[Rfam]
RNA sequence: CGAGGCGUGCCUCAUCGCCCCACUCUACCCAGACGCGCCUAUAGAGCAAUCUGUGGGUGUGAAGCUCCGGGAAAAACGUAAUCGAAAGCGUAAUUUUGCUACGUGAAGAGGUGCUAGAGUAAGAAAUCCUUUGUAGGAUUGUUUUG
Number, nucleotide and partner (000 for none) at each position: 001c000002g021003a000004g019005g018006c017007g016008u000009g000010c000011c000012u000013c000014a000015u000016c007017g006018c005019c004020c000021c002022a000023c000024u000025c000026u000027a000028c000029c070030c069031a000032g067033a066034c061035g060036c059037g058038c057039c056040u055041a054042u053043a052044g051045a050046g000047c000048a000049a000050u045051c044052u043053g042054u041055g040056g039057g038058u037059g036060u035061g034062a000063a000064g000065c000066u033067c032068c000069g030070g029071g000072a000073a000074a000075a000076a000077c000078g000079u000080a000081a000082u000083c098084g097085a096086a095087a094088g000089c000090g000091u000092a000093a000094u087095u086096u085097u084098g083099c000100u121101a120102c119103g000104u000105g000106a000107a000108g000109a115110g114111g000112u000113g000114c110115u109116a000117g000118a000119g102120u101121a100122a000123g000124a000125a000126a139127u138128c137129c136130u135131u000132u000133g000134u000135a130136g129137g128138a127139u126140u000141g000142u000143u000144u000145u000146g000

Background:
The record is a 146-nucleotide RNA sequence from Coccomyxa sp. Obi, which matches "Group II catalytic intron D1-D4-7" in Rfam. The pairing is the family consensus, mapped onto this sequence. The organism belongs to Coccomyxa, within Eukaryota. The match comes from Rfam's covariance-model search (45 bits). Rfam 15.1 lists 1,296 matches to the family in 705 species.